This 64-nucleotide sequence from Musa balbisiana belongs to the Rfam family "Plastid-clpP 5UTR RNA". It scores 56 bits against the family's covariance model. The organism belongs to Musa, within Eukaryota. About the family: Plastid clpP is a non-coding RNA (ncRNA) recognised in plastids. It was found in the prime untranslated region (5UTR) of a protease complex subunit (clpP) in plastids, suggesting a posible cis-regulatory function. It is annotated as a cis-regulatory element. For this family Rfam cites "Retrograde signaling in plants: A critical review focusing on the GUN pathway and beyond" (Richter et al., Plant Commun, 2023). Rfam 15.1 lists 2,105 matches to the family in 526 species.
[Rfam]
RNA sequence: AAUUCUAUUUGUUAGAAUAAAGAGAAGCAUAUUUGUUCUAUACCCAUACCAAUACAUAGUGGGG
Numbered sequence: 001a002a003u004u005c006u007a008u009u010u011g012u013u014a015g016a017a018u019a020a021a022g023a024g025a026a027g028c029a030u031a032u033u034u035g036u037u038c039u040a041u042a043c044c045c046a047u048a049c050c051a052a053u054a055c056a057u058a059g060u061g062g063g064g
Stems, first nucleotide, its partner, number of pairs: 003022002006019005043063003047054002